RNA sequence: UGGACACGAGGCGAAGUGUAGGGUCACGGGCUUGGCCACAGCUGAGCCCAGGCCCAGGGAAGUCCCCGGGCCCAUAUUUGCAGAGAUGCACCCUUGGCAACGAGGGGAUCCCGGUAAGAGACACCUUCGUCCCCCGACGAUGGGCUGAGACGCGUGCGGAGCCCAGUGAGUCGCUAACCGGAUCAGUUUGGCCGAUCACACAGUCAUUCACUUGGUCAGCUUUGACUAACAGAACGGGGCUUACGACCUCGUGGCC
Numbered sequence: 001u002g003g004a005c006a007c008g009a010g011g012c013g014a015a016g017u018g019u020a021g022g023g024u025c026a027c028g029g030g031c032u033u034g035g036c037c038a039c040a041g042c043u044g045a046g047c048c049c050a051g052g053c054c055c056a057g058g059g060a061a062g063u064c065c066c067c068g069g070g071c072c073c074a075u076a077u078u079u080g081c082a083g084a085g086a087u088g089c090a091c092c093c094u095u096g097g098c099a100a101c102g103a104g105g106g107g108a109u110c111c112c113g114g115u116a117a118g119a120g121a122c123a124c125c126u127u128c129g130u131c132c133c134c135c136g137a138c139g140a141u142g143g144g145c146u147g148a149g150a151c152g153c154g155u156g157c158g159g160a161g162c163c164c165a166g167u168g169a170g171u172c173g174c175u176a177a178c179c180g181g182a183u184c185a186g187u188u189u190g191g192c193c194g195a196u197c198a199c200a201c202a203g204u205c206a207u208u209c210a211c212u213u214g215g216u217c218a219g220c221u222u223u224g225a226c227u228a229a230c231a232g233a234a235c236g237g238g239g240c241u242u243a244c245g246a247c248c249u250c251g252u253g254g255c256c
Base pairs, nucleotide, nucleotide: 002256003255005253006252007251008250009249010248011247014213015212016211017210018209022054023053024052028049029048030047031046032045033044034043035042036041060242061241062240064239065238066237067236079090080089081088082087091106092105093104094103095102096101108183109182110181114178115177117175118174131170133168142164143163144162145161152157215226216225217224218223
RNase MRP: a 256-nucleotide RNA from Kalanchoe fedtschenkoi. The match comes from Rfam's covariance-model search (70 bits). The literature on the family includes a 1993 paper in FASEB J by Schmitt et al., "Secondary structure of RNase MRP RNA as predicted by phylogenetic comparison". Rfam 15.1 lists 3,510 matches to the family in 2,315 species. Lineage of the source: Eukaryota > Embryophyta > Spermatophyta > Crassulaceae > Kalanchoe.